[Rfam]
RNA sequence: GUGGCGGUGUAGUCCCAGCCGGCGUCGCCGUCGAGCAGGGCGUUCUCGCCGAAGCGGUCACCGUCGGCGAGGGUGGCGAUGGCCACCUCGUCGCCGUACUUGCCGAGGGAGGUCUGGCUGAUCCGGCCGUGGGCGAUCAUGUGGAUCUGGUCGGCGGGGGCACCGCGCUCGACGAGCACCUCGCCGGCCCGGAAGUCGCGCUGGACGCACCGGCCGGCGAGCGCGGUCAGCACCUCCACGUCGUCGAAGCCGCGCAGCAGGGCGAGUUCGCCGAGCUCCUGGGGGAUCACCCGGACCGAGGCGCCGUCCUGGACGAACUCGAUCCGCCCGUCGCCGACGGUGUAGCUCAGCCGGCGGUUCACCCGGUAGGUGCCGCCCUUGGUCUCGACCCAGGGCAGGCUCCGCAGCAGCCAGCGGGAGGUGAUCUCCUGCAUCUGCGGGGCGGACUUGGUCGUGCUGGCAAGGUUGCGGGCGGCCGCCGUGCUCAGGCUGGACUGCUGCGGCGG
Numbered sequence: 001g002u003g004g005c006g007g008u009g010u011a012g013u014c015c016c017a018g019c020c021g022g023c024g025u026c027g028c029c030g031u032c033g034a035g036c037a038g039g040g041c042g043u044u045c046u047c048g049c050c051g052a053a054g055c056g057g058u059c060a061c062c063g064u065c066g067g068c069g070a071g072g073g074u075g076g077c078g079a080u081g082g083c084c085a086c087c088u089c090g091u092c093g094c095c096g097u098a099c100u101u102g103c104c105g106a107g108g109g110a111g112g113u114c115u116g117g118c119u120g121a122u123c124c125g126g127c128c129g130u131g132g133g134c135g136a137u138c139a140u141g142u143g144g145a146u147c148u149g150g151u152c153g154g155c156g157g158g159g160g161c162a163c164c165g166c167g168c169u170c171g172a173c174g175a176g177c178a179c180c181u182c183g184c185c186g187g188c189c190c191g192g193a194a195g196u197c198g199c200g201c202u203g204g205a206c207g208c209a210c211c212g213g214c215c216g217g218c219g220a221g222c223g224c225g226g227u228c229a230g231c232a233c234c235u236c237c238a239c240g241u242c243g244u245c246g247a248a249g250c251c252g253c254g255c256a257g258c259a260g261g262g263c264g265a266g267u268u269c270g271c272c273g274a275g276c277u278c279c280u281g282g283g284g285g286a287u288c289a290c291c292c293g294g295a296c297c298g299a300g301g302c303g304c305c306g307u308c309c310u311g312g313a314c315g316a317a318c319u320c321g322a323u324c325c326g327c328c329c330g331u332c333g334c335c336g337a338c339g340g341u342g343u344a345g346c347u348c349a350g351c352c353g354g355c356g357g358u359u360c361a362c363c364c365g366g367u368a369g370g371u372g373c374c375g376c377c378c379u380u381g382g383u384c385u386c387g388a389c390c391c392a393g394g395g396c397a398g399g400c401u402c403c404g405c406a407g408c409a410g411c412c413a414g415c416g417g418g419a420g421g422u423g424a425u426c427u428c429c430u431g432c433a434u435c436u437g438c439g440g441g442g443c444g445g446a447c448u449u450g451g452u453c454g455u456g457c458u459g460g461c462a463a464g465g466u467u468g469c470g471g472g473c474g475g476c477c478g479c480c481g482u483g484c485u486c487a488g489g490c491u492g493g494a495c496u497g498c499u500g501c502g503g504c505g506g
Stems, first nucleotide, its partner, number of pairs: 006390003011385002014382002018328001021325002025322003031316002036312001038310003047303004054233001058229001060227005065111001068108001075103001077102003082097002086093001117222003122217002127212001129210002132206001134204001136202001140198002149189007157177001164174002235295003240290002243287003250282003254278001256277003260271001262269001329342004353377005360372004391431005397425001401421001403418001405416001407415001437476002440473001443470002446467001447465003451461002477505002480502003486497003
RNA: Saccharopolyspora sRNA 350